[Rfam]
A member of the RNA family "Small nucleolar RNA Z266" from Papaver somniferum, 113 nucleotides long. Rfam classes the family as a C/D-box small nucleolar RNA. It scores 59 bits against the family's covariance model. A reference for the family is Chen et al. (2003), "The high diversity of snoRNAs in plants: identification and comparative study of 120 snoRNA genes from Oryza sativa", Nucleic Acids Res. The family's consensus secondary structure was predicted with PFOLD. Rfam links the family to the GO terms nucleolus and RNA processing. Taxonomically the source falls in Papaver (Eukaryota, Embryophyta, Tracheophyta, Euphyllophyta).
RNA sequence: UGAAAGCAAGGAUGAGGAUUCAAUUAGAUGUGUUAAAGGAGAGGCAGAGAAUUCUUCUCUUCUUUAUGAACUUAAAAUUUUUAUUUGGCAAUAAUUAGUCUGACUUGCUAUUC
Numbered sequence: 001u002g003a004a005a006g007c008a009a010g011g012a013u014g015a016g017g018a019u020u021c022a023a024u025u026a027g028a029u030g031u032g033u034u035a036a037a038g039g040a041g042a043g044g045c046a047g048a049g050a051a052u053u054c055u056u057c058u059c060u061u062c063u064u065u066a067u068g069a070a071c072u073u074a075a076a077a078u079u080u081u082u083a084u085u086u087g088g089c090a091a092u093a094a095u096u097a098g099u100c101u102g103a104c105u106u107g108c109u110a111u112u113c
Stems, first nucleotide, its partner, number of pairs: 002112002005109006